This 96-nucleotide RNA from Rhynchophorus ferrugineus belongs to the Rfam family "mir-210 microRNA precursor family".
A search with the family's covariance model found it, with a score of 71 bits.
Its family is annotated with RISC complex and miRNA-mediated post-transcriptional gene silencing in the Gene Ontology.
On this family, see Cai et al., Proc Natl Acad Sci U S A 2005: "Kaposi's sarcoma-associated herpesvirus expresses an array of viral microRNAs in latently infected cells".
The family has 26 seed sequences and 790 matches in Rfam 15.1.
[Rfam]
RNA sequence: UUGAAACCCACUACAGCUGCUGGACGCUGCACAAGAGAGAUUUCGAAAACUCUUGUGCGUGUGACAGCGGCUAUUGUGGGAAUUCUUAUACGUCGA
Number, nucleotide and partner (000 for none) at each position: 001u000002u000003g000004a000005a000006a000007c080008c079009c078010a077011c076012u000013a000014c000015a072016g071017c070018u069019g068020c067021u066022g065023g000024a000025c061026g060027c000028u059029g058030c057031a056032c055033a054034a000035g052036a051037g000038a000039g000040a000041u000042u000043u000044c000045g000046a000047a000048a000049a000050c000051u036052c035053u000054u033055g032056u031057g030058c029059g028060u026061g025062u000063g000064a000065c022066a021067g020068c019069g018070g017071c016072u015073a000074u000075u000076g011077u010078g009079g008080g007081a000082a000083u000084u000085c000086u000087u000088a000089u000090a000091c000092g000093u000094c000095g000096a000